narK RNA: a 72-nucleotide RNA sequence from Pseudomonas oryzihabitans. Rfam's curators put it in the seed alignment. The organism belongs to Pseudomonas oryzihabitans, within Bacteria.
RNA sequence: GGCGCGAGCCUUGCUAAAUCCCUGGCAUGGAGCGGUCAACGUCGAUCGCCCCCUUCACGACAAAGGCGCCGU
Numbered sequence: 001g002g003c004g005c006g007a008g009c010c011u012u013g014c015u016a017a018a019u020c021c022c023u024g025g026c027a028u029g030g031a032g033c034g035g036u037c038a039a040c041g042u043c044g045a046u047c048g049c050c051c052c053c054u055u056c057a058c059g060a061c062a063a064a065g066g067c068g069c070c071g072u
Base pairs, nucleotide, nucleotide: 032049033048034047035046036045037044